[Rfam]
RNA sequence: AGCAUCCGAGGAUAGAGGAAGCCGGGUCGCCCCGGCUGGGCGUGAAAUUCGAC
Numbered sequence: 001a002g003c004a005u006c007c008g009a010g011g012a013u014a015g016a017g018g019a020a021g022c023c024g025g026g027u028c029g030c031c032c033c034g035g036c037u038g039g040g041c042g043u044g045a046a047a048u049u050c051g052a053c
Stems, first nucleotide, its partner, number of pairs: 020037007
Source information:
The record is a 53-nucleotide sequence, which matches "leuA-Halobacteria RNA" in Rfam. Rfam's curators put it in the seed alignment. Rfam classes the family as a cis-regulatory element.